[Rfam]
RNA sequence: GAAGUCCGCCGGACCGCCGCUGGUGCAUGUCUCGAAAGAGCGCACUGGAGGAACGUCCGGACUGCACAGGACAGCGCAGGAGCUAACGGCUCUCCACCGCGAGGUGAGGAUCAGAGCAACAGAGACGAGUCUGAGCGGGUACAGGCCACCGAAGGUGUUCUGUGGGUGCCGGCGAAAGCCGGCAGUCGGCUGGCGCAAGCCAGUCGGCCCGGGCGCAAGCCCGGAGCCCACAGCCACCCUGGGCAGGCGGCGCCUGCCCAGGGUGAAACGGGCAAUCUCUGCGCGCAGCAACACCAAGUAGGCCAGCGUCGAUGUGGUUCCGCAGAGCUGGCGGGUAGGUGGCAUCGAGCCGGGUGGGCGACCCCCGGCCCAGAGUAAUGGCGGUCACGCCGGGCGACCGCAAGGGCGCCCGGUGCACAGAAUCCGGCUUACAGGCGGACUUCACAC
Numbered sequence: 001g002a003a004g005u006c007c008g009c010c011g012g013a014c015c016g017c018c019g020c021u022g023g024u025g026c027a028u029g030u031c032u033c034g035a036a037a038g039a040g041c042g043c044a045c046u047g048g049a050g051g052a053a054c055g056u057c058c059g060g061a062c063u064g065c066a067c068a069g070g071a072c073a074g075c076g077c078a079g080g081a082g083c084u085a086a087c088g089g090c091u092c093u094c095c096a097c098c099g100c101g102a103g104g105u106g107a108g109g110a111u112c113a114g115a116g117c118a119a120c121a122g123a124g125a126c127g128a129g130u131c132u133g134a135g136c137g138g139g140u141a142c143a144g145g146c147c148a149c150c151g152a153a154g155g156u157g158u159u160c161u162g163u164g165g166g167u168g169c170c171g172g173c174g175a176a177a178g179c180c181g182g183c184a185g186u187c188g189g190c191u192g193g194c195g196c197a198a199g200c201c202a203g204u205c206g207g208c209c210c211g212g213g214c215g216c217a218a219g220c221c222c223g224g225a226g227c228c229c230a231c232a233g234c235c236a237c238c239c240u241g242g243g244c245a246g247g248c249g250g251c252g253c254c255u256g257c258c259c260a261g262g263g264u265g266a267a268a269c270g271g272g273c274a275a276u277c278u279c280u281g282c283g284c285g286c287a288g289c290a291a292c293a294c295c296a297a298g299u300a301g302g303c304c305a306g307c308g309u310c311g312a313u314g315u316g317g318u319u320c321c322g323c324a325g326a327g328c329u330g331g332c333g334g335g336u337a338g339g340u341g342g343c344a345u346c347g348a349g350c351c352g353g354g355u356g357g358g359c360g361a362c363c364c365c366c367g368g369c370c371c372a373g374a375g376u377a378a379u380g381g382c383g384g385u386c387a388c389g390c391c392g393g394g395c396g397a398c399c400g401c402a403a404g405g406g407c408g409c410c411c412g413g414u415g416c417a418c419a420g421a422a423u424c425c426g427g428c429u430u431a432c433a434g435g436c437g438g439a440c441u442u443c444a445c446a447c
Base pairs, nucleotide, nucleotide: 001443002442003441004440005439006438007437008436009435010434011432012386013385014384015383016382017381018380020048021047022046023045024044025043026042028040053430055428057427058426059425060424061423062288063287064286065285069319071318074284075283076282077281078280079093080092081091082090083089094108095106096105097104098103109279110278114277115276116273117272131262132261292341293340294339295338302332303331304330305329306328307327313324314323315322316321349369350368351367352366353365354364356363357362
The family of this 447-nucleotide RNA from Xylophilus sp. Leaf220 is "Bacterial RNase P class A".
The organism belongs to Xylophilus, within Bacteria.
About the family: Ribonuclease P (RNase P) is a ubiquitous endoribonuclease, found in archaea, bacteria and eukarya as well as chloroplasts and mitochondria.